[Rfam]
RNA sequence: GGUCCGACACCGCCGAGUCGCCUCCGGGCGAGCCGGGGACCCAGGUACCUGGGGUGAAUCCGCAGCCACUGCGGUAGGGCGGCUCCCUUCCCGCCCGAACCCGUCAGCUAACUCGGUAGGCGGGCACGAAGAAGGAGU
Numbered sequence: 001g002g003u004c005c006g007a008c009a010c011c012g013c014c015g016a017g018u019c020g021c022c023u024c025c026g027g028g029c030g031a032g033c034c035g036g037g038g039a040c041c042c043a044g045g046u047a048c049c050u051g052g053g054g055u056g057a058a059u060c061c062g063c064a065g066c067c068a069c070u071g072c073g074g075u076a077g078g079g080c081g082g083c084u085c086c087c088u089u090c091c092c093g094c095c096c097g098a099a100c101c102c103g104u105c106a107g108c109u110a111a112c113u114c115g116g117u118a119g120g121c122g123g124g125c126a127c128g129a130a131g132a133a134g135g136a137g138u
Stems, first nucleotide, its partner, number of pairs: 011122004018031003032117006042051002052102003060074004077096004
RNA: c-di-AMP riboswitch aptamer (ydaO/yuaA leader)